[Rfam]
RNA sequence: ACCGGGACCGGUGGCGUGGUCUUGUAAUCCAGCUGCUUUGGAGGUCUAGGCUGUUGGACGGCGUGAGGUUGGGAGUUCUGUCCUCCUCUCAUUCAUGCAGAUCAGGCGUCCGCGCUAAGCACGGUGUCGAUAUGGUGUUCUCGGGGGAGCUUGGGUCCACCAGGUCGUCUAAGGCGGAGCGAACCGGCCCAGGUCGGAAACGGAGCAGGCAAAAGCUCCCGCACGGUGCAGUAGUGGGAUAGCGCUUGUGAAUGAACGGUGGUUGGCAGCCCAUCCAAGAUAGUCGGACACAGUCUUUU
Number, nucleotide and partner (000 for none) at each position: 001a045002c044003c043004g023005g022006g021007a020008c019009c018010g017011g000012u000013g000014g000015c000016g000017u010018g009019g008020u007021c006022u005023u004024g000025u000026a000027a000028u042029c041030c040031a000032g000033c000034u000035g000036c000037u000038u000039u000040g030041g029042a028043g003044g002045u001046c000047u000048a296049g295050g294051c293052u292053g291054u290055u000056g000057g000058a000059c286060g285061g284062c283063g000064u000065g000066a000067g276068g275069u000070u273071g272072g271073g270074a000075g000076u000077u000078c269079u268080g267081u266082c265083c000084u000085c262086c261087u000088c259089u258090c000091a000092u256093u255094c254095a253096u252097g000098c250099a000100g000101a000102u000103c248104a247105g246106g245107c244108g243109u242110c238111c237112g000113c236114g235115c234116u233117a232118a000119g229120c228121a227122c226123g000124g224125u223126g222127u221128c167129g166130a165131u164132a000133u162134g161135g160136u159137g158138u000139u000140c155141u154142c153143g152144g151145g150146g000147g000148a000149g000150c145151u144152u143153g142154g141155g140156u000157c000158c137159a136160c135161c134162a133163g000164g131165u130166c129167g128168u174169c173170u000171a000172a000173g169174g168175c000176g219177g218178a217179g216180c215181g000182a000183a000184c000185c000186g000187g210188c209189c208190c000191a000192g000193g000194u203195c202196g201197g000198a000199a000200a000201c196202g195203g194204a000205g000206c000207a000208g189209g188210c187211a000212a000213a000214a000215g180216c179217u178218c177219c176220c000221g127222c126223a125224c124225g000226g122227u121228g120229c119230a000231g000232u117233a116234g115235u114236g113237g111238g110239a000240u000241a000242g109243c108244g107245c106246u105247u104248g103249u000250g098251a000252a096253u095254g094255a093256a092257c000258g089259g088260u000261g086262g085263u000264u000265g082266g081267c080268a079269g078270c073271c072272c071273a070274u000275c068276c067277a000278a000279g000280a000281u000282a000283g062284u061285c060286g059287g000288a000289c000290a054291c053292a052293g051294u050295c049296u048297u000298u000299u000
Rfam assigns this 299-nucleotide RNA sequence from Nephila pilipes to the family "Metazoan signal recognition particle RNA". The base pairs follow the family's consensus structure, which is taken from published work. Taxonomically the source falls in Nephila (Eukaryota, Eumetazoa, Panarthropoda, Orbiculariae). Rfam's curators write: The signal recognition particle (SRP) is a universally conserved ribonucleoprotein. It is annotated as a non-coding RNA gene.